[Rfam]
Actinobacteria sRNA Ms_IGR-5: a 193-nucleotide RNA from Motilibacter peucedani.
The match comes from Rfam's covariance-model search (100 bits).
The base pairs follow the family's consensus structure.
Lineage of the source: Bacteria > Bacillati > Actinomycetota > Motilibacteraceae > Motilibacter.
RNA sequence: ACACGGGAAGGGAGGUGGUUCGAGACUUUGAGUAGUUAUCGGACUCGUGAGGUGGCUGCCAGCUAGCCACGACUCCCGGGCAACCGGUCGCAGGCGCGGCCGGCUAUACCCAGGCAGUCACCGGAACCCGCGGGCGUCGGGGAUCAGUCCCCCCGGCACAUGGUCGUUGACGACCGCCCGCGGGUUCUUCCAU
Numbered sequence: 001a002c003a004c005g006g007g008a009a010g011g012g013a014g015g016u017g018g019u020u021c022g023a024g025a026c027u028u029u030g031a032g033u034a035g036u037u038a039u040c041g042g043a044c045u046c047g048u049g050a051g052g053u054g055g056c057u058g059c060c061a062g063c064u065a066g067c068c069a070c071g072a073c074u075c076c077c078g079g080g081c082a083a084c085c086g087g088u089c090g091c092a093g094g095c096g097c098g099g100c101c102g103g104c105u106a107u108a109c110c111c112a113g114g115c116a117g118u119c120a121c122c123g124g125a126a127c128c129c130g131c132g133g134g135c136g137u138c139g140g141g142g143a144u145c146a147g148u149c150c151c152c153c154c155g156g157c158a159c160a161u162g163g164u165c166g167u168u169g170a171c172g173a174c175c176g177c178c179c180g181c182g183g184g185u186u187c188u189u190c191c192a193u
Stems, first nucleotide, its partner, number of pairs: 014060006061105004066100002070096002124187013137156006